[Rfam]
Notes
This 103-nucleotide RNA from Parazoarcus communis belongs to the Rfam family "SAH (S-adenosyl-L-homocysteine) riboswitch aptamer". Its family is annotated with S-adenosylhomocysteine metabolic process and regulation of gene expression in the Gene Ontology. It scores 48 bits against the family's covariance model. The source organism's lineage runs through Bacteria, Pseudomonadota, Betaproteobacteria, Zoogloeaceae and Parazoarcus.
RNA sequence: AAUUCCGAGGAGCGCUGCAAGGCACUGUCCGCAUUCAUUGCGACAGCCCCAGGCUCGGAACCCGCCCUCCCCGGGCGGGCGUGUGAAACGGCGCUCACCCUGG
Numbered sequence: 001a002a003u004u005c006c007g008a009g010g011a012g013c014g015c016u017g018c019a020a021g022g023c024a025c026u027g028u029c030c031g032c033a034u035u036c037a038u039u040g041c042g043a044c045a046g047c048c049c050c051a052g053g054c055u056c057g058g059a060a061c062c063c064g065c066c067c068u069c070c071c072c073g074g075g076c077g078g079g080c081g082u083g084u085g086a087a088a089c090g091g092c093g094c095u096c097a098c099c100c101u102g103g
Stems, first nucleotide, its partner, number of pairs: 003060006021048003026043001